The family of this 96-nucleotide RNA from Gossypium stocksii is "Plastid-rps12 3UTR RNA". Rfam classes the family as a cis-regulatory element.

RNA sequence: GGUUUCCAUAGGUGUAAAUCCAAUCUUGGAAUUUGAGAUGAGAACAAAUUCCCCAUUGGUAGCAAAUGCUUAUCCAUUAAAUGGGGAAAAUCCUAU
Numbered sequence: 001g002g003u004u005u006c007c008a009u010a011g012g013u014g015u016a017a018a019u020c021c022a023a024u025c026u027u028g029g030a031a032u033u034u035g036a037g038a039u040g041a042g043a044a045c046a047a048a049u050u051c052c053c054c055a056u057u058g059g060u061a062g063c064a065a066a067u068g069c070u071u072a073u074c075c076a077u078u079a080a081a082u083g084g085g086g087a088a089a090a091u092c093c094u095a096u
Base pairs, nucleotide, nucleotide: 009023011021012020051086052085053084054083055077056076058074059073060072061071062070
A search with the family's covariance model found it, with a score of 91 bits.